[Rfam]
RNA: MIR8675 microRNA precursor family
RNA sequence: UAUGAAACUCUAAGAUUGUGCCACAUCAUCACUUGAAAAUUAAAAAAUUUAUAUAAAUUUUCAGGUGAUGACAUGAUACAAUCUUAUAGUGUCAC
Numbered sequence: 001u002a003u004g005a006a007a008c009u010c011u012a013a014g015a016u017u018g019u020g021c022c023a024c025a026u027c028a029u030c031a032c033u034u035g036a037a038a039a040u041u042a043a044a045a046a047a048u049u050u051a052u053a054u055a056a057a058u059u060u061u062c063a064g065g066u067g068a069u070g071a072c073a074u075g076a077u078a079c080a081a082u083c084u085u086a087u088a089g090u091g092u093c094a095c
Base pairs, nucleotide, nucleotide: 003094004093005092007090008089009088012085013084014083015082016081017080018079019078020077022075023074026071027070028069029068030067031066032065033064034063035062036061037060038059039058040057041056